[Rfam]
RNA sequence: ACGCUGGUUUAGCUCAGUGGUUACUUCAACUAAAAUCCUGUUUUAAGGUCCGUGGGCCCUAAGUACGAACCACGGGCGCUGUCCUGCGUUUUA
Numbered sequence: 001a002c003g004c005u006g007g008u009u010u011a012g013c014u015c016a017g018u019g020g021u022u023a024c025u026u027c028a029a030c031u032a033a034a035a036u037c038c039u040g041u042u043u044u045a046a047g048g049u050c051c052g053u054g055g056g057c058c059c060u061a062a063g064u065a066c067g068a069a070c071c072a073c074g075g076g077c078g079c080u081g082u083c084c085u086g087c088g089u090u091u092u093a
Stems, first nucleotide, its partner, number of pairs: 002088003006084002012077004017073004025069003